RNA sequence: GGACAAGGUAGAGGCUUGGAUCUCCGCCCGAUUAGAACGCGUGGCACCCGACCGGGGGCGGGAGGAGCCAGUGGUGCGACCGGCUACCUCCAGG
Numbered sequence: 001g002g003a004c005a006a007g008g009u010a011g012a013g014g015c016u017u018g019g020a021u022c023u024c025c026g027c028c029c030g031a032u033u034a035g036a037a038c039g040c041g042u043g044g045c046a047c048c049c050g051a052c053c054g055g056g057g058g059c060g061g062g063a064g065g066a067g068c069c070a071g072u073g074g075u076g077c078g079a080c081c082g083g084c085u086a087c088c089u090c091c092a093g094g
Stems, first nucleotide, its partner, number of pairs: 006089006013069003023062007043080001044077005
A member of the RNA family "c-di-GMP-II-GAG riboswitch aptamer", 94 nucleotides long. It is one of the family's seed sequences. The family is grouped with related families in Rfam's "c-di-GMP_II riboswitch clan".